Rfam assigns this 508-nucleotide RNA from Saccharopolyspora rhizosphaerae to the family "Saccharopolyspora sRNA 350". The family's RNA type in Rfam is antisense RNA. Rfam links the family to the GO term regulation of secondary metabolite biosynthetic process. For this family Rfam cites "Prediction and characterization of small non-coding RNAs related to secondary metabolites in Saccharopolyspora erythraea" (Liu et al., PLoS One, 2013).

Nucleotides: 508
Stems, first nucleotide, its partner, number of pairs: 006390001008388002014382001022327001024325002028322005035315001036312006046304004051299002054233002058229002062225003065111004077102001079100002082097005117222004122217001127212001129210002131206001133204003138197003149192001154189007162177001166173001236294002240290006250282003254278001256277002260271001262269001329342003351379003355375003360372001391431002394428002397425001399423003403418003407415001437476004443470001446467001447465006478506001480502002484499005
Number, partner (000 for none) and nucleotide at each position: 001000u002000u003000g004000u005000a006390g007000c008388u009387g010000g011000c012000c013000u014382c015000c016000c017000a018000c019000u020000c021000c022327c023000c024325g025324g026000u027000c028322u029321c030320g031319c032318c033000g034000g035315c036312c037311a038310g039309c040308a041307c042000g043000u044000g045000c046304g047303c048302g049301c050000c051299g052298a053000a054233g055232u056000a057000c058229u059228g060000g061000c062225c063224g064223u065111c066110g067109g068108c069000g070000a071000g072000c073000a074000c075000c076000u077102c078000c079100a080099g081000a082097g083096c084095g085094g086093u087000c088000u089000g090000g091000u092000c093086g094085c095084c096083g097082u098000a099080c100079u101000c102077g103000c104000c105000g106000g107000u108068g109067c110066c111065g112000a113000u114000c115000u116000u117222g118221u119220u120219g121000a122217c123000c124000u125000u126000g127212c128000c129210g130209u131206g132000c133204g134203c135202g136000a137000u138197c139196a140195g141000c142000a143000c144000c145000a146000c147000u148000u149192c150000c151000u152000c153000g154189g155188c156187c157186g158185g159184g160183u161000c162177g163000c164000c165000g166173g167000a168000g169000u170000g171000g172000g173166c174000g175000a176000u177162c178000a179000c180000c181000u182000c183160g184159c185158c186157c187156g188155g189154c190000u191000c192149g193000a194000a195140c196139u197138g198000g199000c200000g201000c202135u203134g204133c205000a206131c207000g208000a209130a210129c211000c212127g213000g214000u215000c216000c217122g218000c219120c220119a221118a222117c223064g224063c225062g226000c227000g228059c229058a230000a231000c232055g233054c234000c235000g236294c237293c238000u239000c240290g241289u242288c243287g244286u245285c246000g247000a248000a249000g250282c251281c252280g253000c254278g255000c256277a257276g258000c259000a260271g261000c262269g263000g264000g265000a266000g267000u268000u269262c270000u271260c272000g273000c274000a275000a276257c277256u278254c279000c280252u281251g282250g283000g284000g285245g286244a287243u288242g289241a290240c291000g292000c293237g294236g295000a296000c297000g298052u299051c300000c301049g302048c303047g304046c305000c306000g307041g308040u309039g310038u311037u312036g313000c314000u315035g316000a317000a318032g319031g320030u321029g322028a323000u324025c325024c326000u327022g328000c329342c330341g331340u332000c333000c334000c335000c336000g337000a338000g339000c340331g341330u342329g343000u344000a345000g346000c347000u348000c349000a350000g351379c352378c353377g354000c355375c356374g357373g358000u359000u360372c361000a362000c363000c364000c365000g366000g367000u368000a369000c370000a371000c372360g373357c374356c375355g376000c377353c378352g379351g380000c381000c382014g383000c384000u385000u386000g387009c388008a389000c390006c391431c392430a393000c394428g395427g396000c397425a398000g399423c400422a401421u402000c403418c404417g405416c406000a407415g408000c409000a410000g411000c412000c413000a414000c415407c416405g417404c418403g419000a420000g421401g422400u423399g424000a425397u426000c427395c428394c429000c430392u431391g432000c433000a434000u435000c436000u437476g438475c439474g440473g441000g442000a443470c444000c445000g446467a447465c448464u449463u450462g451461g452460u453000c454000g455000u456000g457000g458000u459000c460452g461451c462450c463449a464448g465447g466000u467446u468000g469000c470443g471000g472000g473440c474439c475438g476437c477000g478506g479000c480502c481501g482000u483000g484499c485498u486497c487496a488495g489000g490000c491000u492000c493000a494000g495488c496487u497486g498485g499484g500000c501481c502480g503000c504000c505000u506478c507000g508000g